This 122-nucleotide RNA sequence from Portunus trituberculatus belongs to the Rfam family "U11 spliceosomal RNA". NCBI's taxonomy places the organism under Eukaryota, Pancrustacea, Eubrachyura, Heterotremata, Portunus. Its Rfam clan is "U1 clan".

[Rfam]
RNA sequence: UAAAAGGGUGUCCGCCGUACUGAGUGGCGCGCGGUUCGCCGUGGGGGAUGGCUCUCAAGACAUACCCGACACGUAAUUUUUAGUACGAGAGGGAAGUUCGAUGCUGUAGCUCGGACGCCCUC
Number, nucleotide and partner (000 for none) at each position: 001u000002a000003a000004a000005a000006g000007g000008g072009u071010g070011u069012c068013c029014g028015c027016c026017g025018u000019a000020c000021u000022g000023a000024g000025u017026g016027g015028c014029g013030c043031g042032c041033g040034g039035u000036u000037c000038g000039c034040c033041g032042u031043g030044g067045g066046g065047g000048a063049u062050g061051g000052c000053u000054c000055u000056c000057a000058a000059g000060a000061c050062a049063u048064a000065c046066c045067c044068g012069a011070c010071a009072c008073g000074u000075a000076a000077u000078u000079u000080u000081u000082a000083g000084u000085a000086c000087g000088a000089g000090a000091g120092g119093g118094a000095a000096g116097u115098u114099c113100g112101a000102u000103g110104c109105u000106g000107u000108a000109g104110c103111u000112c100113g099114g098115a097116c096117g000118c093119c092120c091121u000122c000